The family of this 347-nucleotide part of an RNA from planctomycete str. 670 is "Bacterial large subunit ribosomal RNA". The organism belongs to Planctomycetaceae, within Bacteria. The sequence is in the family's curated seed alignment. Its Rfam clan is "LSU clan".
[Rfam]
RNA sequence: CGGGAGAAUGGUGGUUAAGGAACUCUGCAAAAUUGUCCCGUACGUUCGCAAUAAGGGACGCCCCGAAGGGUGUUAAAGCCCAUUGGGGCCGCAGUGAAUCGGGAGCAGCGACUGUUUAUCAAAAACACAGGACUCUGCCAACUCGUAAGAGGAUGUAUAGAGUCUGACGCCUGCCCGGUGUCGGUAAGUCAAGGGAGUCGGUUAGCGCAAGCGAAGCUGGCGACCAAAGCUCCGAUAAACGGCGGCCGUAACUAUGACGGUCCUAAGGUAGCGAAGUUCCUUGUCGGGUAAGUUCCGACCUGCAUGAAUGGCGUAACGACUGCUCUACUGUCUCAACCACCAACCCG
Numbered sequence: 001c002g003g004g005a006g007a008a009u010g011g012u013g014g015u016u017a018a019g020g021a022a023c024u025c026u027g028c029a030a031a032a033u034u035g036u037c038c039c040g041u042a043c044g045u046u047c048g049c050a051a052u053a054a055g056g057g058a059c060g061c062c063c064c065g066a067a068g069g070g071u072g073u074u075a076a077a078g079c080c081c082a083u084u085g086g087g088g089c090c091g092c093a094g095u096g097a098a099u100c101g102g103g104a105g106c107a108g109c110g111a112c113u114g115u116u117u118a119u120c121a122a123a124a125a126c127a128c129a130g131g132a133c134u135c136u137g138c139c140a141a142c143u144c145g146u147a148a149g150a151g152g153a154u155g156u157a158u159a160g161a162g163u164c165u166g167a168c169g170c171c172u173g174c175c176c177g178g179u180g181u182c183g184g185u186a187a188g189u190c191a192a193g194g195g196a197g198u199c200g201g202u203u204a205g206c207g208c209a210a211g212c213g214a215a216g217c218u219g220g221c222g223a224c225c226a227a228a229g230c231u232c233c234g235a236u237a238a239a240c241g242g243c244g245g246c247c248g249u250a251a252c253u254a255u256g257a258c259g260g261u262c263c264u265a266a267g268g269u270a271g272c273g274a275a276g277u278u279c280c281u282u283g284u285c286g287g288g289u290a291a292g293u294u295c296c297g298a299c300c301u302g303c304a305u306g307a308a309u310g311g312c313g314u315a316a317c318g319a320c321u322g323c324u325c326u327a328c329u330g331u332c333u334c335a336a337c338c339a340c341c342a343a344c345c346c347g
Stems, first nucleotide, its partner, number of pairs: 001347004009342008018333003035059005044049001060089007068081004090094001102326007109318002113127003130165008138155001142151003168313004173243003178240002180236005187231003193225002197221006205212002244262006263267001273300001283299006